[Rfam]
The record is a 107-nucleotide sequence from Panicum miliaceum, which matches "Small nucleolar RNA snoR97" in Rfam. The match comes from Rfam's covariance-model search (61 bits). Rfam 15.1 lists 862 matches to the family in 223 species. For this family Rfam cites "Experimental RNomics: identification of 140 candidates for small non-messenger RNAs in the plant Arabidopsis thaliana" (Marker et al., Curr Biol, 2002). By type it is an H/ACA-box small nucleolar RNA.
RNA sequence: UGUUUAUCUGCGGCAAGGAUCUUCCAAAGCUCACAAAGUCUGUGCUGUCAUCACCUUUGUCUCUGCUUCAACAUAAGAGAUCGGAGUUGAAAAAUAGCACAACAUUU
Numbered sequence: 001u002g003u004u005u006a007u008c009u010g011c012g013g014c015a016a017g018g019a020u021c022u023u024c025c026a027a028a029g030c031u032c033a034c035a036a037a038g039u040c041u042g043u044g045c046u047g048u049c050a051u052c053a054c055c056u057u058u059g060u061c062u063c064u065g066c067u068u069c070a071a072c073a074u075a076a077g078a079g080a081u082c083g084g085a086g087u088u089g090a091a092a093a094a095u096a097g098c099a100c101a102a103c104a105u106u107u
Base pairs, nucleotide, nucleotide: 041101042100043099044098045097046096047095053088055086056085057084058083060080061079062078063077